Small nucleolar RNA SNORD59: a 70-nucleotide RNA sequence from Gasterosteus aculeatus. The family is grouped with related families in Rfam's "SNORD59 clan". Rfam classes the family as a C/D-box small nucleolar RNA. The literature on the family includes a 2002 paper in Mol Cell Biol by Galardi et al., "Purified box C/D snoRNPs are able to reproduce site-specific 2'-O-methylation of target RNA in vitro". A search with the family's covariance model found it, with a score of 66 bits. The base pairs follow the family's consensus structure, which was predicted with ILM.

[Rfam]
RNA sequence: UCUUCAGUGAUGAUUAACAGACUUUCGUUCAUCUGAGCAUACUGAAGCCAACCUUUCUGUGCUGAGAAGA
Numbered sequence: 001u002c003u004u005c006a007g008u009g010a011u012g013a014u015u016a017a018c019a020g021a022c023u024u025u026c027g028u029u030c031a032u033c034u035g036a037g038c039a040u041a042c043u044g045a046a047g048c049c050a051a052c053c054u055u056u057c058u059g060u061g062c063u064g065a066g067a068a069g070a
Stems, first nucleotide, its partner, number of pairs: 001070003005066001